[Rfam]
RNA sequence: GGCAGAUGAUGUCUUCUUCUCACGAUGGUCUGCGGAUGCCGCUGGGCGGUGCCGAGAAUGCCGAUGGCUCAGCUGAUGCCAGGAG
Numbered sequence: 001g002g003c004a005g006a007u008g009a010u011g012u013c014u015u016c017u018u019c020u021c022a023c024g025a026u027g028g029u030c031u032g033c034g035g036a037u038g039c040c041g042c043u044g045g046g047c048g049g050u051g052c053c054g055a056g057a058a059u060g061c062c063g064a065u066g067g068c069u070c071a072g073c074u075g076a077u078g079c080c081a082g083g084a085g
Stems, first nucleotide, its partner, number of pairs: 001080004

This 85-nucleotide RNA sequence from Tupaia belangeri belongs to the Rfam family "Small nucleolar RNA SNORD35". Its family is annotated with nucleolus and RNA processing in the Gene Ontology. Taxonomically the source falls in Tupaia belangeri (Eukaryota, Bilateria, Chordata, Tupaiidae). A reference for the family is Nicoloso et al. (1996), "Intron-encoded, antisense small nucleolar RNAs: the characterization of nine novel species points to their direct role as guides for the 2'-O-ribose methylation of rRNAs", J Mol Biol. It is annotated as a C/D-box small nucleolar RNA. The match comes from Rfam's covariance-model search (77 bits). From the family's description: U35 is a C/D box snoRNA located in intron 6 of ribosomal protein L13A and intron 3 of ribosomal protein S11 in humans and at homologous positions in mouse and chicken ribosomal protein genes.